The family of this 74-nucleotide RNA sequence from Plasmodium ovale is "small nucleolar RNA snoR17". Its family is annotated with RNA processing and nucleolus in the Gene Ontology.
[Rfam]
RNA sequence: UUUUUUAUGAUGAAAAAAACAAAAACUGAUGCAUGUUGAUGACAGUUUAUUAUUUCACCAAGAUCUCUGAAAAA
Numbered sequence: 001u002u003u004u005u006u007a008u009g010a011u012g013a014a015a016a017a018a019a020c021a022a023a024a025a026c027u028g029a030u031g032c033a034u035g036u037u038g039a040u041g042a043c044a045g046u047u048u049a050u051u052a053u054u055u056c057a058c059c060a061a062g063a064u065c066u067c068u069g070a071a072a073a074a
Stems, first nucleotide, its partner, number of pairs: 002074004
For this family Rfam cites "Structural RNAs of known and unknown function identified in malaria parasites by comparative genomics and RNA analysis" (Chakrabarti et al., RNA, 2007). The pairing is the family consensus, mapped onto this sequence.